[Rfam]
RNA sequence: CUCUCCGAAAUGGCUUGAGGGCCAGCCUCGGGACCUAGCUCAGGGGUGUAGAGCGACGGAAUUCGUUUGGGGGGCUCCCCGCCUACCCGGCGAAACCCAACUCCGAAGACCCUGAACCGAAUCCCGGGAGUCAGAGCGUGGGGGAGAAGCUUCACGCUCGAGAGGGCAACAACCCAGACCGCCGACCAAGGCCCCCAAACGACGCUCAGUGGCAAAGGAAGUGGGAUCGCGGUGACAGCCGGGAUGUUGGCUUAGAAGCAGCCACCAUUUCAACAGUGCGUAAUAGCUGACCGGCCGAGCCAUCCCGCGCCGAAAAUGACGGGGACUCAAGCGUCGUGCCGCAGUCGCGGAUUCGUCAAGAAUGGUAGGAGAGCGUUGCACACCGCGUCGAAGCGGGACGGGAACGACCCGUGGAGCGUGUGCAAGUGCGUAU
Numbered sequence: 001c002u003c004u005c006c007g008a009a010a011u012g013g014c015u016u017g018a019g020g021g022c023c024a025g026c027c028u029c030g031g032g033a034c035c036u037a038g039c040u041c042a043g044g045g046g047u048g049u050a051g052a053g054c055g056a057c058g059g060a061a062u063u064c065g066u067u068u069g070g071g072g073g074g075c076u077c078c079c080c081g082c083c084u085a086c087c088c089g090g091c092g093a094a095a096c097c098c099a100a101c102u103c104c105g106a107a108g109a110c111c112c113u114g115a116a117c118c119g120a121a122u123c124c125c126g127g128g129a130g131u132c133a134g135a136g137c138g139u140g141g142g143g144g145a146g147a148a149g150c151u152u153c154a155c156g157c158u159c160g161a162g163a164g165g166g167c168a169a170c171a172a173c174c175c176a177g178a179c180c181g182c183c184g185a186c187c188a189a190g191g192c193c194c195c196c197a198a199a200c201g202a203c204g205c206u207c208a209g210u211g212g213c214a215a216a217g218g219a220a221g222u223g224g225g226a227u228c229g230c231g232g233u234g235a236c237a238g239c240c241g242g243g244a245u246g247u248u249g250g251c252u253u254a255g256a257a258g259c260a261g262c263c264a265c266c267a268u269u270u271c272a273a274c275a276g277u278g279c280g281u282a283a284u285a286g287c288u289g290a291c292c293g294g295c296c297g298a299g300c301c302a303u304c305c306c307g308c309g310c311c312g313a314a315a316a317u318g319a320c321g322g323g324g325a326c327u328c329a330a331g332c333g334u335c336g337u338g339c340c341g342c343a344g345u346c347g348c349g350g351a352u353u354c355g356u357c358a359a360g361a362a363u364g365g366u367a368g369g370a371g372a373g374c375g376u377u378g379c380a381c382a383c384c385g386c387g388u389c390g391a392a393g394c395g396g397g398a399c400g401g402g403a404a405c406g407a408c409c410c411g412u413g414g415a416g417c418g419u420g421u422g423c424a425a426g427u428g429c430g431u432a433u
Base pairs, nucleotide, nucleotide: 001373002372003371004370005369006368011024012023013022014021015020026130027128028127029126030125031124032123033122036121038117040115041114042113043112044111045110051104052102053101058098059097062094063093064092065091069087070086071084072083073082134159135158136157137156138155139154140153141152142151143150164175165174166173179350180349181348182347184346185345186344190340191339192338199337200336201335202334203333204332205331217311218310221308222307223306224305225304226303227302229300230299238295239294240293241292242291244268245267246266249263250262251261269273274289278287279286351363352362353361354360374428376425377424378423379422380421381420382419384418385417386416393412394411395410396409397408399406400405

Record summary:
Shown here is a 433-nucleotide part of an RNA from Isosphaera pallida, a member of the family "Bacterial large subunit ribosomal RNA". The base pairs follow the family's consensus structure, which is taken from published work. Gene Ontology terms of the family: ribosome and structural constituent of ribosome.